[Rfam]
RNA sequence: CCGACGGGCGACCGCCCGCUCGGAUACUGACCCCGGUACCUGAUACGGCUGGGGCAG
Numbered sequence: 001c002c003g004a005c006g007g008g009c010g011a012c013c014g015c016c017c018g019c020u021c022g023g024a025u026a027c028u029g030a031c032c033c034c035g036g037u038a039c040c041u042g043a044u045a046c047g048g049c050u051g052g053g054g055c056a057g
Stems, first nucleotide, its partner, number of pairs: 001023004005018004027057003031054007